[Rfam]
RNA: c-di-AMP riboswitch aptamer (ydaO/yuaA leader)
RNA sequence: ACAUCAAAAAGGCCGAAGCUUAAUUCGUAAGCGCGGGGGAACCCAUAUCCUUGGGGUGAAGCCACUAUGGUGGCCGGGUGGUUGCUCUUUGACCCGAAUCCGUCAGCUAACCUCGCAGGCCGUAAAAAGGAGAGGA
Numbered sequence: 001a002c003a004u005c006a007a008a009a010a011g012g013c014c015g016a017a018g019c020u021u022a023a024u025u026c027g028u029a030a031g032c033g034c035g036g037g038g039g040a041a042c043c044c045a046u047a048u049c050c051u052u053g054g055g056g057u058g059a060a061g062c063c064a065c066u067a068u069g070g071u072g073g074c075c076g077g078g079u080g081g082u083u084g085c086u087c088u089u090u091g092a093c094c095c096g097a098a099u100c101c102g103u104c105a106g107c108u109a110a111c112c113u114c115g116c117a118g119g120c121c122g123u124a125a126a127a128a129g130g131a132g133a134g135g136a
Stems, first nucleotide, its partner, number of pairs: 011121004018032003033116006043053001054101003062073004076095004